The record is a 117-nucleotide sequence from Nelumbo nucifera, which matches "Small nucleolar RNA Z278" in Rfam. The source organism's lineage runs through Eukaryota, Streptophyta, Proteales, Nelumbonaceae and Nelumbo. The family has 7 seed sequences and 1,130 matches in Rfam 15.1. A reference for the family is Chen et al. (2003), "The high diversity of snoRNAs in plants: identification and comparative study of 120 snoRNA genes from Oryza sativa", Nucleic Acids Res. About the family: snoZ278 is a C/D box small nucleolar RNA. Its methylation guide targets have not been reported.
RNA sequence: GCCGGUGAUGAGUUAUCCAUGUUUUUGAGGUGUAGUUGGUUCCAAGUCCCUGUUUGCAGGGAGAACCUACUUGGAGCUGCUACAUUUUUGUACGAAAUUACUGGAUAUUUCUGAGGC
Numbered sequence: 001g002c003c004g005g006u007g008a009u010g011a012g013u014u015a016u017c018c019a020u021g022u023u024u025u026u027g028a029g030g031u032g033u034a035g036u037u038g039g040u041u042c043c044a045a046g047u048c049c050c051u052g053u054u055u056g057c058a059g060g061g062a063g064a065a066c067c068u069a070c071u072u073g074g075a076g077c078u079g080c081u082a083c084a085u086u087u088u089u090g091u092a093c094g095a096a097a098u099u100a101c102u103g104g105a106u107a108u109u110u111c112u113g114a115g116g117c
Stems, first nucleotide, its partner, number of pairs: 001117003048061005